[Rfam]
RNA sequence: CCGCAGCUAAUUAAGCCGGCCGUGGCCCUGUGUGGGUCCCGGCGCGCACUGGCUGCGCACAGCGACCCCUCCCCCCCCCGGCUGUGUAGGGACCCCUCCCCCACCCCGGGGGGGUCCCAAAGGGGCCGGGGGGACACGG
Numbered sequence: 001c002c003g004c005a006g007c008u009a010a011u012u013a014a015g016c017c018g019g020c021c022g023u024g025g026c027c028c029u030g031u032g033u034g035g036g037u038c039c040c041g042g043c044g045c046g047c048a049c050u051g052g053c054u055g056c057g058c059a060c061a062g063c064g065a066c067c068c069c070u071c072c073c074c075c076c077c078c079c080g081g082c083u084g085u086g087u088a089g090g091g092a093c094c095c096c097u098c099c100c101c102c103a104c105c106c107c108g109g110g111g112g113g114g115u116c117c118c119a120a121a122g123g124g125g126c127c128g129g130g131g132g133g134a135c136a137c138g139g
Base pairs, nucleotide, nucleotide: 003047004046019043020042021041022040025037026036027035028034080127081126082125092115093114094113095112096111097110098109099108
This 139-nucleotide RNA sequence from Leiothrix lutea belongs to the Rfam family "Small nucleolar RNA SNORA70". A reference for the family is Charette and Gray (2000), "Pseudouridine in RNA: what, where, how, and why", IUBMB Life. Rfam describes the family as follows. snoRNA U70 seems to be exclusive to mammals and is a member of the H/ACA class of snoRNA which contain H (ANANNA) and ACA box motifs. H/ACA box snoRNAs are involved in the conversion of uridines to pseudouridines (5-ribosyluracil) a constituent of structural RNAs (transfer, ribosomal, small nuclear, and small nucleolar). It scores 44 bits against the family's covariance model.